[Rfam]
RNA sequence: UUAUAAAAAAAUAUUUUUAACUGUAUAACCUCAAGAAUAUGGCUUGGGGGUCUCUACCAGGAACCUUAAAAUCCUGAUUACAGAAAAAUGAAUUAUAUUC
Dot-bracket structure: .................(..(((((...(((((((.......)))))))........(((((.........)))))..)))))..)..............

The family of this 100-nucleotide RNA from Bacillus salacetis is "Purine riboswitch aptamer".
Riboswitches are metabolite binding domains within certain messenger RNAs that serve as precision sensors for their corresponding targets.
Taxonomically the source falls in Bacillus (Bacteria, Bacillati, Bacilli, Bacillaceae).